[Rfam]
RNA sequence: CUCAAGGGAGUAGCAGACGAGUGGCUUAGGUCAUUUGUGGCAAUAUCGUCAUUACGAAACGAAAGUUUUCCGGUAUUGUCUUAAACAGCGAGACUUGUAGCAAUUGUGCUACAAGUCUCUUUUU
Number, nucleotide and partner (000 for none) at each position: 001c000002u000003c000004a000005a038006g000007g036008g035009a000010g000011u033012a000013g031014c030015a000016g000017a000018c000019g000020a000021g000022u000023g000024g000025c000026u000027u000028a000029g000030g014031u013032c000033a011034u000035u008036u007037g000038u005039g080040g079041c078042a077043a076044u075045a074046u073047c072048g071049u000050c000051a069052u000053u000054a000055c065056g000057a000058a000059a000060c000061g000062a000063a000064a000065g055066u000067u000068u000069u051070c000071c048072g047073g046074u045075a044076u043077u042078g041079u040080c039081u000082u000083a000084a000085a000086c000087a000088g000089c000090g119091a118092g117093a116094c115095u114096u113097g112098u111099a110100g109101c108102a000103a000104u000105u000106g000107u000108g101109c100110u099111a098112c097113a096114a095115g094116u093117c092118u091119c090120u000121u000122u000123u000124u000
Streptococcus sRNA 10: a 124-nucleotide RNA from Pseudolactococcus insecticola. The organism belongs to Pseudolactococcus, within Bacteria. On this family, see Tesorero et al., PLoS One 2013: "Novel regulatory small RNAs in Streptococcus pyogenes". It scores 62 bits against the family's covariance model. The family's consensus secondary structure was predicted with RNAfold.